[Rfam]
RNA: Fungal signal recognition particle RNA
Organism: Talaromyces amestolkiae
RNA sequence: UAUCUGUGACGGAUAACUCAGUGGGAGGGUAGCUGCCGGUCGGUCCCCUUGCGUAGGGUAACCAGCGGGUGAGUGUGUCUGUUUCGAAUCAGGGAGCGGCGGUCAUAACUCGUCGGUGAACCACGAUUGUUGUGCUGCCCUAAGCAAUGAAGAUGAACCCCCAGGGAAGCAAUUCUGCAAGGAACUCUUCACUCUGUGAUGGCGACAGCAGACGGCACCUCCUCGUGUAAGGAAAUUGGCCAUUAGGCUACACAACUACAUCUCUU
Numbered sequence: 001u002a003u004c005u006g007u008g009a010c011g012g013a014u015a016a017c018u019c020a021g022u023g024g025g026a027g028g029g030u031a032g033c034u035g036c037c038g039g040u041c042g043g044u045c046c047c048c049u050u051g052c053g054u055a056g057g058g059u060a061a062c063c064a065g066c067g068g069g070u071g072a073g074u075g076u077g078u079c080u081g082u083u084u085c086g087a088a089u090c091a092g093g094g095a096g097c098g099g100c101g102g103u104c105a106u107a108a109c110u111c112g113u114c115g116g117u118g119a120a121c122c123a124c125g126a127u128u129g130u131u132g133u134g135c136u137g138c139c140c141u142a143a144g145c146a147a148u149g150a151a152g153a154u155g156a157a158c159c160c161c162c163a164g165g166g167a168a169g170c171a172a173u174u175c176u177g178c179a180a181g182g183a184a185c186u187c188u189u190c191a192c193u194c195u196g197u198g199a200u201g202g203c204g205a206c207a208g209c210a211g212a213c214g215g216c217a218c219c220u221c222c223u224c225g226u227g228u229a230a231g232g233a234a235a236u237u238g239g240c241c242a243u244u245a246g247g248c249u250a251c252a253c254a255a256c257u258a259c260a261u262c263u264c265u266u
Stems, first nucleotide, its partner, number of pairs: 001015004021259004027253001029251005034245001038241007047232003052067003056063002069224001071222001073220001075218004079211005084205003088200004093195004098139001100137003104134004108128001110126004115122002140144001148191006159182002166175003